Description: Manganese Mn2+ riboswitch aptamer (yybP-ykoY): a 135-nucleotide RNA from Bermanella marisrubri. Lineage of the source: Bacteria > Pseudomonadati > Gammaproteobacteria > Oceanospirillales > Bermanella. Its family is annotated with manganese ion binding in the Gene Ontology. The literature on the family includes a 2001 paper in Curr Biol by Argaman et al., "Novel small RNA-encoding genes in the intergenic regions of Escherichia coli".
RNA sequence: CCCAGCAUCUUAGGGGAGUAGCCUGCUUUUACUGCUGUGACCAAAUCCAGUGGAAGAGCGGUAACGUCAACAUACUUGAGCCCUCAAUGGCUUAUGGCGUUAUCAAACAAUCCGUCUCAUUGGCGCUAUUGUUUU
Numbered sequence: 001c002c003c004a005g006c007a008u009c010u011u012a013g014g015g016g017a018g019u020a021g022c023c024u025g026c027u028u029u030u031a032c033u034g035c036u037g038u039g040a041c042c043a044a045a046u047c048c049a050g051u052g053g054a055a056g057a058g059c060g061g062u063a064a065c066g067u068c069a070a071c072a073u074a075c076u077u078g079a080g081c082c083c084u085c086a087a088u089g090g091c092u093u094a095u096g097g098c099g100u101u102a103u104c105a106a107a108c109a110a111u112c113c114g115u116c117u118c119a120u121u122g123g124c125g126c127u128a129u130u131g132u133u134u135u
Stems, first nucleotide, its partner, number of pairs: 025059006060104010077094005